[Rfam]
RNA: Small nucleolar RNA Z199
RNA sequence: GGAUCAUUUGAUGAGAAAAAAACUGCAACAAUAUGAUGGAUUUGUUCCAUGAUUCCUAGUAUUUAAUUAAGUCUCUGAUGAUC
Numbered sequence: 001g002g003a004u005c006a007u008u009u010g011a012u013g014a015g016a017a018a019a020a021a022a023c024u025g026c027a028a029c030a031a032u033a034u035g036a037u038g039g040a041u042u043u044g045u046u047c048c049a050u051g052a053u054u055c056c057u058a059g060u061a062u063u064u065a066a067u068u069a070a071g072u073c074u075c076u077g078a079u080g081a082u083c
Stems, first nucleotide, its partner, number of pairs: 001083002004081003038048003